Record summary: The record is a 305-nucleotide RNA sequence from Phytophthora infestans, which matches "Metazoan signal recognition particle RNA" in Rfam. Lineage of the source: Eukaryota > Stramenopiles > Oomycota > Peronosporomycetes > Phytophthora. Rfam links the family to the GO terms SRP-dependent cotranslational protein targeting to membrane, signal sequence recognition and signal recognition particle, endoplasmic reticulum targeting. Rfam describes the family as follows. The signal recognition particle (SRP) is a universally conserved ribonucleoprotein. It is involved in the co-translational targeting of proteins to membranes. Rfam 15.1 lists 383,523 matches to the family in 1,221 species. Rfam classes the family as a non-coding RNA gene.
[Rfam]
RNA sequence: ACCGGGUUGGGUGGCGCCAACUUGUCACGGGCAUGCUUCUGUCCGGGUAGUUAGGUGUGAGGGUUGUGGCAUGCGUUGUUGUGACGCUAUCCCCAGGAUGUGGAUGAUGCGUCCAUCUCAUACCAGGAGUUGACAUUGAGGUAUAGUCGUAAGACAGUACAUCGUGGUCACUAAGGAAAGGUAUACCGCCCCAGGCUGGUAAACAGAGCAGGGAAAAGCCCUCGCUCUUGGUAGUGGGAGGAUCUCGUAUCAGAAUUCUGAUGUGUCAAAACCUCGCUACAAGCGAUAAUUCGAUCAUCUAACGC
Numbered sequence: 001a002c003c004g005g006g007u008u009g010g011g012u013g014g015c016g017c018c019a020a021c022u023u024g025u026c027a028c029g030g031g032c033a034u035g036c037u038u039c040u041g042u043c044c045g046g047g048u049a050g051u052u053a054g055g056u057g058u059g060a061g062g063g064u065u066g067u068g069g070c071a072u073g074c075g076u077u078g079u080u081g082u083g084a085c086g087c088u089a090u091c092c093c094c095a096g097g098a099u100g101u102g103g104a105u106g107a108u109g110c111g112u113c114c115a116u117c118u119c120a121u122a123c124c125a126g127g128a129g130u131u132g133a134c135a136u137u138g139a140g141g142u143a144u145a146g147u148c149g150u151a152a153g154a155c156a157g158u159a160c161a162u163c164g165u166g167g168u169c170a171c172u173a174a175g176g177a178a179a180g181g182u183a184u185a186c187c188g189c190c191c192c193a194g195g196c197u198g199g200u201a202a203a204c205a206g207a208g209c210a211g212g213g214a215a216a217a218g219c220c221c222u223c224g225c226u227c228u229u230g231g232u233a234g235u236g237g238g239a240g241g242a243u244c245u246c247g248u249a250u251c252a253g254a255a256u257u258c259u260g261a262u263g264u265g266u267c268a269a270a271a272c273c274u275c276g277c278u279a280c281a282a283g284c285g286a287u288a289a290u291u292c293g294a295u296c297a298u299c300u301a302a303c304g305c
Stems, first nucleotide, its partner, number of pairs: 001048003004023007028045005050303008061292006067279004073273001078272003082268004088263004095259005101253001105252007113241002116239005121233010131170004137164003141160004146155003171175001178222001180220003189213003196206003